[Rfam]
RNA: speF leader
Organism: Rhizobium sp. YS-1r
RNA sequence: UGCAGGCUUUCCAUCAGCCUGCAAUACUGAAGAGGCACACCAUCAUUGCCGGAAGUGCGGUUGGGAUUUUCCCUCCAAUCCAUGGCAGACAAAGCCGGAUCUUCGCUCGUGGCAGGGCGUUGAUCCAAAGAUCGCGCGUUUGAGCGUGUCAA
Numbered sequence: 001u002g003c004a005g006g007c008u009u010u011c012c013a014u015c016a017g018c019c020u021g022c023a024a025u026a027c028u029g030a031a032g033a034g035g036c037a038c039a040c041c042a043u044c045a046u047u048g049c050c051g052g053a054a055g056u057g058c059g060g061u062u063g064g065g066a067u068u069u070u071c072c073c074u075c076c077a078a079u080c081c082a083u084g085g086c087a088g089a090c091a092a093a094g095c096c097g098g099a100u101c102u103u104c105g106c107u108c109g110u111g112g113c114a115g116g117g118c119g120u121u122g123a124u125c126c127a128a129a130g131a132u133c134g135c136g137c138g139u140u141u142g143a144g145c146g147u148g149u150c151a152a
Stems, first nucleotide, its partner, number of pairs: 001023008034050004057137003084096002104119005